[Rfam]
Description
The family of this 295-nucleotide RNA sequence from Alphavirus aura is "Togavirus 5' plus strand cis-regulatory element". The base pairs follow the family's consensus structure, which was predicted with PFOLD. The organism belongs to Alphavirus aura, within Viruses. Gene Ontology terms of the family: viral process and RNA biosynthetic process. The literature on the family includes a 2001 paper in RNA by Frolov et al., "Cis-acting RNA elements at the 5' end of Sindbis virus genome RNA regulate minus- and plus-strand RNA synthesis".
RNA sequence: GCGGACGGACUAGUACUUGUACUACAGAAUUAACUGCCGUGUGCCGCCCGCUAAACUAGCCCCAAUCAUCGAAAAUGGAGAAACCGACAGUGCACGUUGACGUAGACCCCCAAAGUCCGUUUGUGCUACAACUGCAGAAGAGUUUCCCACAAUUCGAGAUUGUGGCUCAGCAGGUCACUCCGAAUGACCAUGCUAAUGCCAGAGCUUUUUCGCAUCUGGCUAGUAAACUGAUCGAACAUGAGAUCCCCACCUCAGUUACGAUCUUGGACAUAGGAAGCGCACCAGCUCGUAGAAU
Numbered sequence: 001g002c003g004g005a006c007g008g009a010c011u012a013g014u015a016c017u018u019g020u021a022c023u024a025c026a027g028a029a030u031u032a033a034c035u036g037c038c039g040u041g042u043g044c045c046g047c048c049c050g051c052u053a054a055a056c057u058a059g060c061c062c063c064a065a066u067c068a069u070c071g072a073a074a075a076u077g078g079a080g081a082a083a084c085c086g087a088c089a090g091u092g093c094a095c096g097u098u099g100a101c102g103u104a105g106a107c108c109c110c111c112a113a114a115g116u117c118c119g120u121u122u123g124u125g126c127u128a129c130a131a132c133u134g135c136a137g138a139a140g141a142g143u144u145u146c147c148c149a150c151a152a153u154u155c156g157a158g159a160u161u162g163u164g165g166c167u168c169a170g171c172a173g174g175u176c177a178c179u180c181c182g183a184a185u186g187a188c189c190a191u192g193c194u195a196a197u198g199c200c201a202g203a204g205c206u207u208u209u210u211c212g213c214a215u216c217u218g219g220c221u222a223g224u225a226a227a228c229u230g231a232u233c234g235a236a237c238a239u240g241a242g243a244u245c246c247c248c249a250c251c252u253c254a255g256u257u258a259c260g261a262u263c264u265u266g267g268a269c270a271u272a273g274g275a276a277g278c279g280c281a282c283c284a285g286c287u288c289g290u291a292g293a294a295u
Stems, first nucleotide, its partner, number of pairs: 005290004063162005070156001076149003080146003114133003123129001169194004173189005198220006204213002230263005
Rfam's curators put it in the seed alignment.